[Rfam]
Shown here is a 72-nucleotide sequence from Anolis carolinensis, a member of the family "Small nucleolar RNA SNORD56".
By type it is a C/D-box small nucleolar RNA.
Rfam links the family to the GO terms RNA processing and nucleolus.
Taxonomically the source falls in Anolis (Eukaryota, Chordata, Vertebrata, Bifurcata).
For this family Rfam cites "Purified box C/D snoRNPs are able to reproduce site-specific 2'-O-methylation of target RNA in vitro" (Galardi et al., Mol Cell Biol, 2002).
It scores 43 bits against the family's covariance model.

RNA sequence: UUGCUGUGAUGCUUACAUUUUUCGUCAACAGUAUUUCACAAUAGUGAAUGGUGACGCAUCAGAUCUGAGCAA
Numbered sequence: 001u002u003g004c005u006g007u008g009a010u011g012c013u014u015a016c017a018u019u020u021u022u023c024g025u026c027a028a029c030a031g032u033a034u035u036u037c038a039c040a041a042u043a044g045u046g047a048a049u050g051g052u053g054a055c056g057c058a059u060c061a062g063a064u065c066u067g068a069g070c071a072a
Base pairs, nucleotide, nucleotide: 002071003070004069008026009025010024011023